Shown here is a 197-nucleotide RNA sequence from Paenibacillus lutrae, a member of the family "c-di-AMP riboswitch aptamer (ydaO/yuaA leader)".
RNA sequence: UUCUUGCUUUCGCUGAAUUUCCCCAAACCGGGGAAGCGGGGGAACCAUCGCAGUGCCUUGUCCGGUGUGAGAGCCAGGCAGGAUCUGCAGGGGUGAAUCUUGAAGCGGCGGACCGCCAUGGAACCGCAGCUGCAAGUAGGGCGACUCUCACCGUCCGAAUCCGACAGCUAACCUCGUAAGCAUAAGAGUUCGGGAGG
Numbered sequence: 001u002u003c004u005u006g007c008u009u010u011c012g013c014u015g016a017a018u019u020u021c022c023c024c025a026a027a028c029c030g031g032g033g034a035a036g037c038g039g040g041g042g043a044a045c046c047a048u049c050g051c052a053g054u055g056c057c058u059u060g061u062c063c064g065g066u067g068u069g070a071g072a073g074c075c076a077g078g079c080a081g082g083a084u085c086u087g088c089a090g091g092g093g094u095g096a097a098u099c100u101u102g103a104a105g106c107g108g109c110g111g112a113c114c115g116c117c118a119u120g121g122a123a124c125c126g127c128a129g130c131u132g133c134a135a136g137u138a139g140g141g142c143g144a145c146u147c148u149c150a151c152c153g154u155c156c157g158a159a160u161c162c163g164a165c166a167g168c169u170a171a172c173c174u175c176g177u178a179a180g181c182a183u184a185a186g187a188g189u190u191c192g193g194g195a196g197g
Base pairs, nucleotide, nucleotide: 012181013180014179018035019034020033021032022031023030036177037176038175039174040173041172046090091162092161093160099136100135101134102133139156140155141154142153